Shown here is an 89-nucleotide RNA sequence from Parablautia intestinalis, a member of the family "tRNA". It is annotated as a transfer RNA. It scores 56 bits against the family's covariance model.

RNA sequence: GGAGAAGUACCCAAGAGGCUGAAGGGGCUCCCCUGGAAAGGGAGUAGGUCGUUAAUAGCGGUGCGAGGGUUCAAAUCCCUCCUUCUCCG
Numbered sequence: 001g002g003a004g005a006a007g008u009a010c011c012c013a014a015g016a017g018g019c020u021g022a023a024g025g026g027g028c029u030c031c032c033c034u035g036g037a038a039a040g041g042g043a044g045u046a047g048g049u050c051g052u053u054a055a056u057a058g059c060g061g062u063g064c065g066a067g068g069g070u071u072c073a074a075a076u077c078c079c080u081c082c083u084u085c086u087c088c089g
Stems, first nucleotide, its partner, number of pairs: 001088007010026003028044005065081005